Record summary:
A member of the RNA family "SAM (S-adenosyl methionine) riboswitch aptamer" from Streptomyces scabiei, 116 nucleotides long. The family's consensus secondary structure is taken from published work. Its Rfam clan is "SAM clan". The organism belongs to Streptomyces scabiei, within Bacteria.

RNA sequence: GGUCAUGAGUGACAGCCCAUAGCCCCGGCUGGCUGUCCGGCAACCCUCCUUCCGUGGCGGGGUGCCCCGGGUGAAGACCGGGCCGUAGGCAGCGAGGUCUACGGCAAGCGCGGCUU
Number, nucleotide and partner (000 for none) at each position: 001g079002g078003u077004c076005a000006u000007g000008a000009g038010u000011g037012a036013c035014a034015g033016c032017c000018c000019a000020u000021a030022g029023c000024c000025c000026c000027g000028g000029c022030u021031g000032g016033c015034u014035g013036u012037c011038c009039g066040g065041c064042a000043a000044c062045c061046c060047u000048c057049c056050u000051u000052c000053c000054g000055u000056g049057g048058c000059g000060g046061g045062g044063u000064g041065c040066c039067c000068c000069g000070g000071g000072u000073g000074a000075a000076g004077a003078c002079c001080g000081g000082g105083c104084c103085g102086u101087a100088g099089g098090c097091a000092g000093c000094g000095a000096g000097g090098u089099c088100u087101a086102c085103g084104g083105c082106a000107a000108g000109c000110g000111c000112g000113g000114c000115u000116u000